[Rfam]
RNA sequence: AACUCUGUUUGUAGGAACAAAGAGAGGAAGAUUUAUUCUAUGCUUUACAAGUACCAGUGCAAAAUGGGC
Number, nucleotide and partner (000 for none) at each position: 001a000002a000003c022004u021005c000006u019007g018008u017009u016010u015011g000012u000013a000014g000015g010016a009017a008018c007019a006020a000021a004022g003023a000024g000025a000026g000027g000028a000029a000030g000031a000032u000033u000034u000035a000036u000037u000038c000039u000040a000041u000042g000043c068044u067045u066046u000047a000048c000049a000050a000051g060052u059053a058054c000055c000056a000057g000058u053059g052060c051061a000062a000063a000064a000065u000066g045067g044068g043069c000